[Rfam]
RNA: c-di-GMP-I riboswitch aptamer
Organism: Paenibacillus polymyxa
Nucleotides: 082
Stems, first nucleotide, its partner, number of pairs: 012037002017032002020029003040076004046072003049067003053063003
Number, partner (000 for none) and nucleotide at each position: 001000c002000a003000a004000c005000g006000a007000u008000a009000a010000a011000c012037g013036c014000a015000g016000c017032c018031c019000u020029g021028u022027c023000g024000a025000a026000a027022g028021a029020c030000u031018g032017g033000u034000a035000c036013g037012c038000a039000a040076a041075g042074c043073u044000a045000a046072a047071g048070g049067g050066c051065c052000u053063u054062c055061c056000c057000g058000u059000a060000a061055g062054g063053a064000u065051g066050g067049c068000a069000g070048c071047c072046u073043g074042g075041c076040u077000a078000c079000c080000g081000a082000a